This 105-nucleotide RNA from Propioniciclava coleopterorum belongs to the Rfam family "mraW RNA". Rfam 15.1 lists 851 matches to the family in 821 species. A search with the family's covariance model found it, with a score of 69 bits. The source organism's lineage runs through Bacteria, Bacillati, Actinomycetota, Propionibacteriales and Propioniciclava.
[Rfam]
RNA sequence: AACCGCCCGCGCGGUGAGGCUUCGGUCCGACCGACGCCCUGACGCCACUUCCCCGGUGUCAGGUCGUCGGUACGGACCGGAACCCGACCGCACGGACCACACGAA
Dot-bracket structure: ..........(((((..((.(((((((((.((((((.((((((((..........)))))))).))))))..))))))))).))..)))))..............